[Rfam]
RNA sequence: AACCUCCUAGUACUUACCACAGGCUGUGUUCUUACACUGACUGUGUAGAAAGGGGAGGCAAAGUAAACCUACCCAAUAUAUACCUCAGUUCAGGUCCUGUGCCUGGUCUAUGUUAUGAAUAGGAGACAUGG
Dot-bracket structure: ..((((((...........(((...((((....))))...))).........)))))).............((..((.........((.((((((.....)))))).)).........)).))........
Numbered sequence: 001a002a003c004c005u006c007c008u009a010g011u012a013c014u015u016a017c018c019a020c021a022g023g024c025u026g027u028g029u030u031c032u033u034a035c036a037c038u039g040a041c042u043g044u045g046u047a048g049a050a051a052g053g054g055g056a057g058g059c060a061a062a063g064u065a066a067a068c069c070u071a072c073c074c075a076a077u078a079u080a081u082a083c084c085u086c087a088g089u090u091c092a093g094g095u096c097c098u099g100u101g102c103c104u105g106g107u108c109u110a111u112g113u114u115a116u117g118a119a120u121a122g123g124a125g126a127c128a129u130g131g
Stems, first nucleotide, its partner, number of pairs: 003058006020043003026037004072123002076120002087109002090106006